A member of the RNA family "MIR8024 microRNA precursor family" from Solanum commersonii, 85 nucleotides long.
Rfam links the family to the GO terms RISC complex and miRNA-mediated post-transcriptional gene silencing.
The family's consensus secondary structure was predicted with RNAalifold.
[Rfam]
RNA sequence: UAGAUGGAUUUGAGGACUUCAACUUGUAUAUUGGAGGAUUUUGAAGACUUCUACAGCAUAUUUGGAAGAUUUGAAGACUUCGACU
Numbered sequence: 001u002a003g004a005u006g007g008a009u010u011u012g013a014g015g016a017c018u019u020c021a022a023c024u025u026g027u028a029u030a031u032u033g034g035a036g037g038a039u040u041u042u043g044a045a046g047a048c049u050u051c052u053a054c055a056g057c058a059u060a061u062u063u064g065g066a067a068g069a070u071u072u073g074a075a076g077a078c079u080u081c082g083a084c085u
Stems, first nucleotide, its partner, number of pairs: 001083001003081002006078001009075006018066004025058003032053006